[Rfam]
RNA sequence: UUGGUUUAAAUUAUUGUGGGUUUAUACUUUGAAAAUUAAACUCACAUAAAGUAGUGGAAAAUACAUUAAUUUCAUCAAA
Numbered sequence: 001u002u003g004g005u006u007u008a009a010a011u012u013a014u015u016g017u018g019g020g021u022u023u024a025u026a027c028u029u030u031g032a033a034a035a036u037u038a039a040a041c042u043c044a045c046a047u048a049a050a051g052u053a054g055u056g057g058a059a060a061a062u063a064c065a066u067u068a069a070u071u072u073c074a075u076c077a078a079a
Base pairs, nucleotide, nucleotide: 001079002078004076006074008072009071010070011069012068013067015065016064017063018062022057023056024055025053026052027051028050029049030048031047
MIR5269 microRNA precursor family: a 79-nucleotide RNA from Medicago truncatula. Taxonomically the source falls in Medicago (Eukaryota, Streptophyta, Pentapetalae, fabids). Its family is annotated with RISC complex and miRNA-mediated post-transcriptional gene silencing in the Gene Ontology.